[Rfam]
Rfam assigns this 84-nucleotide RNA from Bombyx mori to the family "mir-2807 microRNA precursor family". The match comes from Rfam's covariance-model search (56 bits). The base pairs follow the family's consensus structure, which was predicted with RNAalifold. Gene Ontology terms of the family: RISC complex and miRNA-mediated post-transcriptional gene silencing.

RNA sequence: UUAGCUCAUAUUUGUAUGGAAUGGAAUCGUUUGCCUACGUUUGUUGCUAGGGGCGCUGUUCCAACUGUAUACAAAAUUGGGUUA
Number, nucleotide and partner (000 for none) at each position: 001u000002u000003a000004g000005c000006u000007c000008a078009u000010a000011u075012u074013u073014g072015u071016a070017u000018g068019g000020a066021a000022u063023g062024g061025a060026a059027u000028c058029g057030u000031u000032u000033g000034c052035c051036u050037a000038c000039g047040u046041u000042u000043g000044u000045u000046g040047c039048u000049a000050g036051g035052g034053g000054c000055g000056c000057u029058g028059u026060u025061c024062c023063a022064a000065c000066u020067g000068u018069a000070u016071a015072c014073a013074a012075a011076a000077u000078u008079g000080g000081g000082u000083u000084a000
The family has 8 seed sequences and 5,120 matches in Rfam 15.1.
The source organism's lineage runs through Eukaryota, Insecta, Pterygota, Endopterygota and Bombyx.